[Rfam]
RNA sequence: CUACUCCCUCCAUAAACUAACAUAAGAGUGUUUAGAUCACUAUUUUAGUUAUCUAAACACUCUUAUAUUAGUUUACGGAGGUAGUAC
Numbered sequence: 001c002u003a004c005u006c007c008c009u010c011c012a013u014a015a016a017c018u019a020a021c022a023u024a025a026g027a028g029u030g031u032u033u034a035g036a037u038c039a040c041u042a043u044u045u046u047a048g049u050u051a052u053c054u055a056a057a058c059a060c061u062c063u064u065a066u067a068u069u070a071g072u073u074u075a076c077g078g079a080g081g082u083a084g085u086a087c
Base pairs, nucleotide, nucleotide: 003085004084005083007081008080009079010078011077013075014074015073016072017071019069020068022066023065024064025063026062027061028060029059030058031057032056033055034054035053036052037051039049040048041047
This 87-nucleotide RNA from Hordeum vulgare belongs to the Rfam family "MIR1120/MIR1122 microRNA precursor family". Pairs were carried over by alignment from the consensus structure, which was predicted with RNAalifold. On this family, see Yao et al., Genome Biol 2007: "Cloning and characterization of microRNAs from wheat (Triticum aestivum L.)".